This 96-nucleotide RNA from Ornithorhynchus anatinus belongs to the Rfam family "Small nucleolar RNA SNORD21". It is annotated as a C/D-box small nucleolar RNA. The match comes from Rfam's covariance-model search (85 bits). A reference for the family is Qu et al. (1994), "U21, a novel small nucleolar RNA with a 13 nt. complementarity to 28S rRNA, is encoded in an intron of ribosomal protein L5 gene in chicken and mammals", Nucleic Acids Res.

[Rfam]
RNA sequence: GCCGGAUGAUGAUCUCCCACGACUGAGCAUUCUGUAGUUGGUCCUUGGUUUGCACAUGAUGCAAUUUCAGUGUUUCAAGACGGGACUGACGGCAGC
Numbered sequence: 001g002c003c004g005g006a007u008g009a010u011g012a013u014c015u016c017c018c019a020c021g022a023c024u025g026a027g028c029a030u031u032c033u034g035u036a037g038u039u040g041g042u043c044c045u046u047g048g049u050u051u052g053c054a055c056a057u058g059a060u061g062c063a064a065u066u067u068c069a070g071u072g073u074u075u076c077a078a079g080a081c082g083g084g085a086c087u088g089a090c091g092g093c094a095g096c
Stems, first nucleotide, its partner, number of pairs: 001093004